[Rfam]
Notes: Rfam assigns this 140-nucleotide RNA from Drosophila albomicans to the family "Small nucleolar RNA psi18S-841/snoR66".
RNA sequence: UGCAAGCGCACUCUGUGUCACAUUGACGCCUUCAUGUGAUGACAAUUUGUAAGUUUGCUAUAACAAACUGUAGUUACGAUUUAUCCAUAUGAUCAUGUCUUCAAAAUGAUUGCAUUGAAUUACUCGCCGUACAUAUUUGC
Numbered sequence: 001u002g003c004a005a006g007c008g009c010a011c012u013c014u015g016u017g018u019c020a021c022a023u024u025g026a027c028g029c030c031u032u033c034a035u036g037u038g039a040u041g042a043c044a045a046u047u048u049g050u051a052a053g054u055u056u057g058c059u060a061u062a063a064c065a066a067a068c069u070g071u072a073g074u075u076a077c078g079a080u081u082u083a084u085c086c087a088u089a090u091g092a093u094c095a096u097g098u099c100u101u102c103a104a105a106a107u108g109a110u111u112g113c114a115u116u117g118a119a120u121u122a123c124u125c126g127c128c129g130u131a132c133a134u135a136u137u138u139g140c
Base pairs, nucleotide, nucleotide: 002058003057004056005055006054007053010050011049014044015043016042017040018039019038020037021036022035023034025033026032064139065138066137069135070134071133073132074131077129078128084118085117087115088114090112091111092110093109094108
The family is grouped with related families in Rfam's "SNORA28 clan". Rfam's curators write: psi18S-841 is a member of the H/ACA class of snoRNA. This family is responsible for guiding the modification of uridine 841 in Drosophila 18S rRNA to pseudouridine. Rfam links the family to the GO terms nucleolus and RNA processing. A search with the family's covariance model found it, with a score of 97 bits.